[Rfam]
RNA sequence: AUGAAUUAAGGGGAUGGAGCUCCCCUUUGAAUUCUGUUAAUUUUACAGAUGAUGGCUCCUAUCUUUUA
Dot-bracket structure: .........[[[[..((((((]]]].......((((.........))))....)))))).........
Numbered sequence: 001a002u003g004a005a006u007u008a009a010g011g012g013g014a015u016g017g018a019g020c021u022c023c024c025c026u027u028u029g030a031a032u033u034c035u036g037u038u039a040a041u042u043u044u045a046c047a048g049a050u051g052a053u054g055g056c057u058c059c060u061a062u063c064u065u066u067u068a
Stems, first nucleotide, its partner, number of pairs: 010025004016059006033049004